Description:
The record is a 123-nucleotide RNA sequence from Hydrostachys imbricata, which matches "Plastid-psbA-1 3UTR RNA" in Rfam. Rfam's curators write: Plastid psbA-1 is a non-coding RNA (ncRNA) present in plastids. It was identified in inverted repeat sequences in the 3 prime untranslate region (3UTR) of photosystem II quinone-binding protein (psbA). Clan: Plastid-psbA 3UTR RNA clan.
RNA sequence: GUUGAAGCUCCAUCUAUAAAUGGAUAAAAAUUUUAUCAUAAAUUUUUUUAUGAUCUUUUGAAGAUAAGGGAGCGAUAUAUCCAUCUUGGUUUAUAAAUACCAAAAAAGAGGUAUCGCUCCCUU
Numbered sequence: 001g002u003u004g005a006a007g008c009u010c011c012a013u014c015u016a017u018a019a020a021u022g023g024a025u026a027a028a029a030a031u032u033u034u035a036u037c038a039u040a041a042a043u044u045u046u047u048u049u050a051u052g053a054u055c056u057u058u059u060g061a062a063g064a065u066a067a068g069g070g071a072g073c074g075a076u077a078u079a080u081c082c083a084u085c086u087u088g089g090u091u092u093a094u095a096a097a098u099a100c101c102a103a104a105a106a107a108g109a110g111g112u113a114u115c116g117c118u119c120c121c122u123u
Stems, first nucleotide, its partner, number of pairs: 009024005066123013080109002084099001086097002